This 73-nucleotide RNA sequence from Medicago truncatula belongs to the Rfam family "MIR2629 microRNA precursor family". The match comes from Rfam's covariance-model search (67 bits).

[Rfam]
RNA sequence: UUAUAACAUUUUCCUCGGCAGUUAACUGCCGCCGAUUUCCUUCAAACUUCGGCAGUUAACUGUCGAGGAAAAC
Numbered sequence: 001u002u003a004u005a006a007c008a009u010u011u012u013c014c015u016c017g018g019c020a021g022u023u024a025a026c027u028g029c030c031g032c033c034g035a036u037u038u039c040c041u042u043c044a045a046a047c048u049u050c051g052g053c054a055g056u057u058a059a060c061u062g063u064c065g066a067g068g069a070a071a072a073c
Stems, first nucleotide, its partner, number of pairs: 012069002015066017

Its family is annotated with RISC complex and miRNA-mediated post-transcriptional gene silencing in the Gene Ontology.